[Rfam]
RNA sequence: AUAAUGAUACUUCUGCCCAGCCAUAGCUUGAGCGUUAAAAGCGUCGCACGCAACGGGGGCAGCUCGGACGGUUGUCGGAGAGUGUGAAAUUCCUAUGG
Numbered sequence: 001a002u003a004a005u006g007a008u009a010c011u012u013c014u015g016c017c018c019a020g021c022c023a024u025a026g027c028u029u030g031a032g033c034g035u036u037a038a039a040a041g042c043g044u045c046g047c048a049c050g051c052a053a054c055g056g057g058g059g060c061a062g063c064u065c066g067g068a069c070g071g072u073u074g075u076c077g078g079a080g081a082g083u084g085u086g087a088a089a090u091u092c093c094u095a096u097g098g
Stems, first nucleotide, its partner, number of pairs: 012095001013062006063080003067076003081094002
The record is a 98-nucleotide sequence from Lachnospiraceae bacterium MD329, which matches "pemK RNA" in Rfam.
By type it is a cis-regulatory element.
Taxonomically the source falls in Lachnospiraceae (Bacteria, Bacillati, Bacillota, Lachnospirales).
It scores 53 bits against the family's covariance model.